[Rfam]
Nucleotides: 089
Base pairs, nucleotide, nucleotide: 001089002088003087005085006084007083008082009081011079012078013077014076015075017074018073019072020071021070022069026067027066028065029064031062032061033060034059035058036057037056038055041052
Number, partner (000 for none) and nucleotide at each position: 001089u002088c003087u004000u005085g006084u007083g008082g009081c010000u011079u012078c013077c014076a015075u016000g017074c018073a019072g020071a021070a022069g023000u024000g025000c026067a027066c028065g029064g030000a031062a032061a033060c034059a035058g036057c037056u038055a039000u040000u041052u042000u043000c044000c045000u046000u047000u048000g049000a050000c051000g052041a053000c054000u055038u056037a057036g058035c059034u060033g061032u062031u063000a064029c065028u066027g067026u068000g069022c070021u071020u072019c073018u074017g075015a076014u077013g078012g079011a080000u081009g082008c083007u084006g085005c086000u087003g088002g089001a
This 89-nucleotide RNA sequence from Centropus unirufus belongs to the Rfam family "mir-2131 microRNA precursor family". Pairs were carried over by alignment from the consensus structure, which was predicted with RNAalifold.